[Rfam]
RNA: Small nucleolar RNA SNORD67
RNA sequence: GGUGGCAGUGAUGAGUUGCACCAUUACCCAGGUUGCUGUUGCAGUGGCACGGCAGGCCUGUCCUGACACAAUGUGUUGACACCCAUUGUGCACAGGGGCCAUCUGAGUCGCC
Numbered sequence: 001g002g003u004g005g006c007a008g009u010g011a012u013g014a015g016u017u018g019c020a021c022c023a024u025u026a027c028c029c030a031g032g033u034u035g036c037u038g039u040u041g042c043a044g045u046g047g048c049a050c051g052g053c054a055g056g057c058c059u060g061u062c063c064u065g066a067c068a069c070a071a072u073g074u075g076u077u078g079a080c081a082c083c084c085a086u087u088g089u090g091c092a093c094a095g096g097g098g099c100c101a102u103c104u105g106a107g108u109c110g111c112c
Stems, first nucleotide, its partner, number of pairs: 004111001007108001024066003029060006038053002040049003